[Rfam]
RNA sequence: GCCUUAUACAGAUAUAGUCACGCGAGACAGUGGCGCAUCUCCCUUUAAGGCAGUGUUUCAACAGAAGCGUAAGCGACAACCCUGGUUGCGUGGCUCUUUAGUCGAAACCAGGUGAGCUUAUGUGGAACAGGUUAUCCGUAAGACCUUGGGUUGAAAAACCCUAAAAUUGACCUGGGAACAGCGAGUAUAGUUUCGCGAUUUUCAUUAUUUCUGGUUACGGUUGU
Numbered sequence: 001g002c003c004u005u006a007u008a009c010a011g012a013u014a015u016a017g018u019c020a021c022g023c024g025a026g027a028c029a030g031u032g033g034c035g036c037a038u039c040u041c042c043c044u045u046u047a048a049g050g051c052a053g054u055g056u057u058u059c060a061a062c063a064g065a066a067g068c069g070u071a072a073g074c075g076a077c078a079a080c081c082c083u084g085g086u087u088g089c090g091u092g093g094c095u096c097u098u099u100a101g102u103c104g105a106a107a108c109c110a111g112g113u114g115a116g117c118u119u120a121u122g123u124g125g126a127a128c129a130g131g132u133u134a135u136c137c138g139u140a141a142g143a144c145c146u147u148g149g150g151u152u153g154a155a156a157a158a159c160c161c162u163a164a165a166a167u168u169g170a171c172c173u174g175g176g177a178a179c180a181g182c183g184a185g186u187a188u189a190g191u192u193u194c195g196c197g198a199u200u201u202u203c204a205u206u207a208u209u210u211c212u213g214g215u216u217a218c219g220g221u222u223g224u
Base pairs, nucleotide, nucleotide: 001051002050003049004048005047006046008044010040011039012038013037015035017034018033019032020031021030022028067123068122069121070120071119072118073117074116081112082111083110084109085108086107087106092103093102095100129146130145131144132143133142136220137219138218139217140216141167148161149160150159151158152157172214173213174212175211176210177209178208180206181205183203184202185201
Shown here is a 224-nucleotide RNA sequence, a member of the family "IS605-orfB-I RNA". Rfam's curators put it in the seed alignment.